[Rfam]
RNA: Plastid-psbN 5UTR RNA
RNA sequence: UGUGAUACCCAUCAAAGGAGUCGUUUCCCAUCCAGGGGCAACCUUACCAUAUCCGGGAACC
Numbered sequence: 001u002g003u004g005a006u007a008c009c010c011a012u013c014a015a016a017g018g019a020g021u022c023g024u025u026u027c028c029c030a031u032c033c034a035g036g037g038g039c040a041a042c043c044u045u046a047c048c049a050u051a052u053c054c055g056g057g058a059a060c061c
Stems, first nucleotide, its partner, number of pairs: 017045002020042002023039005